[Rfam]
RNA: Bacterial RNase P class A
RNA sequence: GAAGCCGACCAGACCGCCGCUGGUGCAUUCGCCGAAAGGCCGCACUGGAGGAAGGUCCGGACUGCAUAGAGCAGCGUAGCGGGUAACGCCCGUCCACCGCGAGGUGCGGAUCAGAGCCACAGAGACGAGUCGCCCAAGGGUUCCCGAAGCGGAGGCACAGCCUGGACGCCAGUUCAGCGCCGUGCUCACCCGCCCAGGGGUUCGACCCCUGGGCGGGUGAAACGCGGCAAUCUCUACGCGCAGCAACACCAAAUAGGCCGGCAUUGAAGCGGCUCGCUGAGCCGGCGGGUAGGUGGCAUCGAGCCAGGGUGGCAACACCCCGGCCCAGAGGAAUGGCGGUCACGGUGGGGCGACCCACCGCACAGAAUCCGGCCUAUCGGUCGACUUCACUC
Numbered sequence: 001g002a003a004g005c006c007g008a009c010c011a012g013a014c015c016g017c018c019g020c021u022g023g024u025g026c027a028u029u030c031g032c033c034g035a036a037a038g039g040c041c042g043c044a045c046u047g048g049a050g051g052a053a054g055g056u057c058c059g060g061a062c063u064g065c066a067u068a069g070a071g072c073a074g075c076g077u078a079g080c081g082g083g084u085a086a087c088g089c090c091c092g093u094c095c096a097c098c099g100c101g102a103g104g105u106g107c108g109g110a111u112c113a114g115a116g117c118c119a120c121a122g123a124g125a126c127g128a129g130u131c132g133c134c135c136a137a138g139g140g141u142u143c144c145c146g147a148a149g150c151g152g153a154g155g156c157a158c159a160g161c162c163u164g165g166a167c168g169c170c171a172g173u174u175c176a177g178c179g180c181c182g183u184g185c186u187c188a189c190c191c192g193c194c195c196a197g198g199g200g201u202u203c204g205a206c207c208c209c210u211g212g213g214c215g216g217g218u219g220a221a222a223c224g225c226g227g228c229a230a231u232c233u234c235u236a237c238g239c240g241c242a243g244c245a246a247c248a249c250c251a252a253a254u255a256g257g258c259c260g261g262c263a264u265u266g267a268a269g270c271g272g273c274u275c276g277c278u279g280a281g282c283c284g285g286c287g288g289g290u291a292g293g294u295g296g297c298a299u300c301g302a303g304c305c306a307g308g309g310u311g312g313c314a315a316c317a318c319c320c321c322g323g324c325c326c327a328g329a330g331g332a333a334u335g336g337c338g339g340u341c342a343c344g345g346u347g348g349g350g351c352g353a354c355c356c357a358c359c360g361c362a363c364a365g366a367a368u369c370c371g372g373c374c375u376a377u378c379g380g381u382c383g384a385c386u387u388c389a390c391u392c
Stems, first nucleotide, its partner, number of pairs: 001388004006383005011377001012341007020048007053375003057372005062243004069275004074239005079093005094108001095106004109234002114232002116228003131216001133213004138208004247295004257286006268278003303324003307320005